The record is a 77-nucleotide RNA from Anisodus acutangulus, which matches "Small nucleolar RNA Z102/R77" in Rfam. Rfam links the family to the GO terms nucleolus and RNA processing. By type it is a C/D-box small nucleolar RNA. It scores 50 bits against the family's covariance model.

[Rfam]
RNA sequence: GAAUGAUAUGAUGAACUUUAUACAAGUGAUUGCUGAUAUGAUAGCAUGUAUCUUUUAUUAGCUCUAGCUGAUCAUUC
Numbered sequence: 001g002a003a004u005g006a007u008a009u010g011a012u013g014a015a016c017u018u019u020a021u022a023c024a025a026g027u028g029a030u031u032g033c034u035g036a037u038a039u040g041a042u043a044g045c046a047u048g049u050a051u052c053u054u055u056u057a058u059u060a061g062c063u064c065u066a067g068c069u070g071a072u073c074a075u076u077c
Stems, first nucleotide, its partner, number of pairs: 002076004028049001031046004
For this family Rfam cites "The high diversity of snoRNAs in plants: identification and comparative study of 120 snoRNA genes from Oryza sativa" (Chen et al., Nucleic Acids Res, 2003).